[Rfam]
Rfam assigns this 45-nucleotide RNA from Lentimicrobium saccharophilum to the family "Acido-Lenti-1 RNA".

RNA sequence: CGAAGGGCUUCGCCCUUCGAUGUUAUAUUCCGCCCCUUCGGGGCU
Numbered sequence: 001c002g003a004a005g006g007g008c009u010u011c012g013c014c015c016u017u018c019g020a021u022g023u024u025a026u027a028u029u030c031c032g033c034c035c036c037u038u039c040g041g042g043g044c045u
Stems, first nucleotide, its partner, number of pairs: 001019008032044005
Rfam classes the family as a small RNA. A search with the family's covariance model found it, with a score of 38 bits.